[Rfam]
RNA: U8 small nucleolar RNA
Organism: Mandrillus leucophaeus
RNA sequence: UUUUCAUAUGGGAUAGUUUUCACUUGUUCCUUCCUUUGGAGGGCAGAUUAGAACACGACGAAUGUGGUUUGCACAAUACAUUAUCAACAUCUUGGAGCUGUCAGAACUUUCAAUGCCCUGAUUGCUUCUAUUUACU
Dot-bracket structure: .......................(((.((((((....)))))))))............................((.(..(....)...).))...((.(((((.............))))).))...........